[Rfam]
RNA sequence: GUGGGUUACGGUGAUAUGACCCCACAUACAUCACUGGGACGUUUGGUGGGAAGUUUAUGUGCAGUAAUGGGUGUGCUAACUAUUGCUCUUCCGGUACCUGUUAUCGUUGGUAAU
Numbered sequence: 001g002u003g004g005g006u007u008a009c010g011g012u013g014a015u016a017u018g019a020c021c022c023c024a025c026a027u028a029c030a031u032c033a034c035u036g037g038g039a040c041g042u043u044u045g046g047u048g049g050g051a052a053g054u055u056u057a058u059g060u061g062c063a064g065u066a067a068u069g070g071g072u073g074u075g076c077u078a079a080c081u082a083u084u085g086c087u088c089u090u091c092c093g094g095u096a097c098c099u100g101u102u103a104u105c106g107u108u109g110g111u112a113a114u
Base pairs, nucleotide, nucleotide: 001114002113004111008107009106010105011104013102014101015100016099018097021094036077037076039074050062
Rfam assigns this 114-nucleotide sequence from Setaria digitata to the family "Potassium channel RNA editing signal". This family represents a group of sequences related to the human potassium channel Kv1.1 hairpin element which directs the efficient modification of an adenosine to inosine by an adenosine deaminase acting on RNA (ADAR). The family's consensus secondary structure is taken from published work.